The record is a 111-nucleotide RNA from Brevundimonas sp. S30B, which matches "Caulobacter sRNA CrfA" in Rfam.
It is annotated as a small RNA.
For this family Rfam cites "Small non-coding RNAs in Caulobacter crescentus" (Landt et al., Mol Microbiol, 2008).
The organism belongs to Brevundimonas, within Bacteria.
RNA sequence: ACUCGAGACGCGCUGAAGCGCAUCUUGAAGGCGUUUCGGGGAGGAAACGUCCGCUCCUUCAGAGAGCGAGAAAGCCCGCUGCGACGUAUCCCCCGCAGCGGGCUUUUUCAU
Numbered sequence: 001a002c003u004c005g006a007g008a009c010g011c012g013c014u015g016a017a018g019c020g021c022a023u024c025u026u027g028a029a030g031g032c033g034u035u036u037c038g039g040g041g042a043g044g045a046a047a048c049g050u051c052c053g054c055u056c057c058u059u060c061a062g063a064g065a066g067c068g069a070g071a072a073a074g075c076c077c078g079c080u081g082c083g084a085c086g087u088a089u090c091c092c093c094c095g096c097a098g099c100g101g102g103c104u105u106u107u108u109c110a111u
Base pairs, nucleotide, nucleotide: 003028004027005026006025007024008023010021011020012019013018030051031050032049033048034047035046036045037044069108070107071106072105073104074103075102076101077100078099079098080097081096082095083094